[Rfam]
RNA: U12 minor spliceosomal RNA
RNA sequence: GUGCCUUAAACUAAUGAGUAAGGAAAAUUGUGUGCCUUGGUAACGCUUGGCACUACCAAGCAUUGUUGGUACCAAUUUUUGGAGGGGAACAGGUCGCCCCCGUGUAGUCUACUUACUUUCGCAGACUGCUGGGAUGUUGCGAUCUACCCC
Numbered sequence: 001g002u003g004c005c006u007u008a009a010a011c012u013a014a015u016g017a018g019u020a021a022g023g024a025a026a027a028u029u030g031u032g033u034g035c036c037u038u039g040g041u042a043a044c045g046c047u048u049g050g051c052a053c054u055a056c057c058a059a060g061c062a063u064u065g066u067u068g069g070u071a072c073c074a075a076u077u078u079u080u081g082g083a084g085g086g087g088a089a090c091a092g093g094u095c096g097c098c099c100c101c102g103u104g105u106a107g108u109c110u111a112c113u114u115a116c117u118u119u120c121g122c123a124g125a126c127u128g129c130u131g132g133g134a135u136g137u138u139g140c141g142a143u144c145u146a147c148c149c150c
Base pairs, nucleotide, nucleotide: 004023005022006021007020008019032053033052034051035050036049039046054071055070056069057068058067084150085149086148087147091145092144093143094142095141096140097139101133104129105128106127108125109124110123112121